[Rfam]
Nucleotides: 177
Base pairs, nucleotide, nucleotide: 028058029057030056031055032054033053135162136161137160138159139158140157141156142155143154144153
Number, partner (000 for none) and nucleotide at each position: 001000a002000a003000u004000a005000u006000u007000a008000a009000a010000g011000c012000u013000g014000u015000c016000c017000a018000u019000c020000c021000a022000a023000a024000g025000a026000c027000a028058g029057c030056a031055g032054g033053u034000a035000u036000a037000u038000a039000a040000a041000c042000g043000g044000u045000u046000u047000u048000g049000u050000c051000c052000g053033g054032c055031c056030u057029g058028c059000c060000g061000a062000g063000g064000a065000a066000a067000g068000a069000c070000g071000a072000g073000c074000a075000a076000u077000a078000u079000a080000a081000g082000g083000g084000a085000a086000g087000a088000g089000a090000c091000c092000g093000c094000c095000a096000g097000a098000u099000u100000u101000g102000g103000a104000c105000g106000g107000u108000u109000c110000c111000u112000u113000a114000u115000g116000c117000c118000c119000u120000g121000c122000g123000a124000u125000u126000u127000g128000c129000u130000u131000g132000c133000a134000a135162c136161g137160c138159c139158u140157u141156u142155c143154c144153g145000a146000g147000g148000a149000g150000a151000c152000c153144c154143g155142g156141a157140a158139a159138g160137g161136c162135g163000u164000u165000u166000u167000u168000g169000a170000u171000u172000u173000u174000a175000c176000u177000u

The record is a 177-nucleotide RNA from Clostridium sp. CAG:1013, which matches "Ribosomal protein L10 leader" in Rfam.
Lineage of the source: Bacteria > Bacillati > Clostridia > Eubacteriales > Clostridium.
For this family Rfam cites "Diverse mechanisms for regulating ribosomal protein synthesis in Escherichia coli" (Zengel and Lindahl, Prog Nucleic Acid Res Mol Biol, 1994).
The base pairs follow the family's consensus structure, which was predicted with CMfinder.
Rfam's curators write: This family is a putative r-protein leader autoregulatory structure found in B. subtilis and other low-GC Gram-positive bacteria.